[Rfam]
RNA: drz-agam-2-2 ribozyme
Organism: Anopheles gambiae
RNA sequence: CUUAGUUUUAGCUCUGCAAUGGGAUGGGAUCCGAAGCCCCAUGAGGGAUCAUAUAGGCUCUACCAUCCAACUCCUAUUCCGACACGUCCUCGUCGUGUAGAGUGCUAACAUGUGUCCCCACAUUUCCAAGCCUGGAUACACGGACGAACCAGGAGGGUGGUGGGCACCCCAGGAAACUGGGUGGA
Numbered sequence: 001c002u003u004a005g006u007u008u009u010a011g012c013u014c015u016g017c018a019a020u021g022g023g024a025u026g027g028g029a030u031c032c033g034a035a036g037c038c039c040c041a042u043g044a045g046g047g048a049u050c051a052u053a054u055a056g057g058c059u060c061u062a063c064c065a066u067c068c069a070a071c072u073c074c075u076a077u078u079c080c081g082a083c084a085c086g087u088c089c090u091c092g093u094c095g096u097g098u099a100g101a102g103u104g105c106u107a108a109c110a111u112g113u114g115u116c117c118c119c120a121c122a123u124u125u126c127c128a129a130g131c132c133u134g135g136a137u138a139c140a141c142g143g144a145c146g147a148a149c150c151a152g153g154a155g156g157g158u159g160g161u162g163g164g165c166a167c168c169c170c171a172g173g174a175a176a177c178u179g180g181g182u183g184g185a
Base pairs, nucleotide, nucleotide: 011103012102013101014100015099016098017097022068023067024066025065026064027063029061031057032056072185073184074183077181078180080179081178084096085095086094089104112167113166114165115164116163118160119159125157126156127155132152133151134150135149137148